[Rfam]
RNA sequence: UGAACCCGCGCGGGAGAGUCCGCCGGCCGUGUGGCCGGCGGCGCCGAAGGAGCAAAUCCUCCCCGGAAUCUCUCAGGCACCCGUACCGCGCGGGCGAA
Numbered sequence: 001u002g003a004a005c006c007c008g009c010g011c012g013g014g015a016g017a018g019u020c021c022g023c024c025g026g027c028c029g030u031g032u033g034g035c036c037g038g039c040g041g042c043g044c045c046g047a048a049g050g051a052g053c054a055a056a057u058c059c060u061c062c063c064c065g066g067a068a069u070c071u072c073u074c075a076g077g078c079a080c081c082c083g084u085a086c087c088g089c090g091c092g093g094g095c096g097a098a
Base pairs, nucleotide, nucleotide: 006093007092008091009090010089011088012087013086020041021040022039023038024037025036043078044077045076046074047073050072051071052070057065